[Rfam]
RNA: radC RNA
RNA sequence: ACUCUGCACUCAUGUCCGCUGACCUCGUCAGCAACAUGCCCAGGCAGCCAGAGGUCUUCGAGGCUGUAGCGUGACUUCACGCUGACCUGCUCAGGACCGCUACCGCAUUCAUCAGCGCGGUCAGGUCGUCGUACCCUCGAUGAUCGGAAUGC
Numbered sequence: 001a002c003u004c005u006g007c008a009c010u011c012a013u014g015u016c017c018g019c020u021g022a023c024c025u026c027g028u029c030a031g032c033a034a035c036a037u038g039c040c041c042a043g044g045c046a047g048c049c050a051g052a053g054g055u056c057u058u059c060g061a062g063g064c065u066g067u068a069g070c071g072u073g074a075c076u077u078c079a080c081g082c083u084g085a086c087c088u089g090c091u092c093a094g095g096a097c098c099g100c101u102a103c104c105g106c107a108u109u110c111a112u113c114a115g116c117g118c119g120g121u122c123a124g125g126u127c128g129u130c131g132u133a134c135c136c137u138c139g140a141u142g143a144u145c146g147g148a149a150u151g152c
Base pairs, nucleotide, nucleotide: 011038012037013036014035015033018032019031020030021029022028023027044067045066046065047064048063049062053087054086055085056084068083069082070081071080072079073078117152118151119150124145126143127142128141129140130139131138